Small nucleolar RNA SNORD72: a 77-nucleotide sequence from Acipenser ruthenus.
A search with the family's covariance model found it, with a score of 70 bits.
By type it is a C/D-box small nucleolar RNA.
snoRNA HBII-240 belongs to the CD family of snoRNAs. It is the human orthologue of the mouse MBII-240 and is predicted to guide 2'O-ribose methylation of the large 28S rRNA at residue U4590.
RNA sequence: AGCUUAUCAGUGAUGUCUCAAUAAAUGUCUGAACAAAUGAUAUCACCGUGAUUUCAAUAUUUUUACUGAGAUAAGCU
Numbered sequence: 001a002g003c004u005u006a007u008c009a010g011u012g013a014u015g016u017c018u019c020a021a022u023a024a025a026u027g028u029c030u031g032a033a034c035a036a037a038u039g040a041u042a043u044c045a046c047c048g049u050g051a052u053u054u055c056a057a058u059a060u061u062u063u064u065a066c067u068g069a070g071a072u073a074a075g076c077u
Base pairs, nucleotide, nucleotide: 002076003075004074005073006072007071008070